This 170-nucleotide sequence from Lysobacter antibioticus belongs to the Rfam family "Glycine riboswitch aptamer".
The organism belongs to Lysobacter, within Bacteria.
RNA sequence: GUACAAAACUCUGGAGAGACCGCCUGCGUACGCUGAGACAGCGGGGCAGAACCGGCGCCGAAGGGGCACGAAGCGAGCGCGGACAGGAGCGGCCCCCGGGCCACCCCUCCCCUAGCUGCCUGACCGCAGCACGCUUUUAAACUCUCAGGCAAAAGGACAGAGGGGCGCCU
Number, nucleotide and partner (000 for none) at each position: 001g000002u000003a000004c000005a000006a000007a000008a000009c162010u161011c160012u159013g158014g000015a000016g000017a000018g000019a000020c055021c054022g053023c000024c000025u000026g000027c000028g000029u000030a000031c000032g000033c000034u000035g000036a000037g000038a000039c000040a000041g000042c000043g000044g000045g000046g000047c000048a000049g000050a000051a000052c000053c022054g021055g020056c000057g150058c149059c148060g146061a145062a000063g000064g144065g143066g142067c000068a000069c000070g137071a136072a135073g134074c133075g132076a000077g000078c000079g000080c000081g000082g000083a000084c000085a000086g000087g000088a000089g000090c000091g000092g000093c000094c000095c000096c000097c000098g000099g000100g000101c000102c000103a000104c000105c000106c000107c000108u000109c000110c000111c000112c000113u000114a000115g000116c000117u000118g000119c000120c000121u000122g000123a000124c000125c000126g000127c000128a000129g000130c000131a000132c075133g074134c073135u072136u071137u070138u000139a000140a000141a000142c066143u065144c064145u061146c060147a000148g059149g058150c057151a000152a000153a000154a000155g000156g000157a000158c013159a012160g011161a010162g009163g000164g000165g000166c000167g000168c000169c000170u000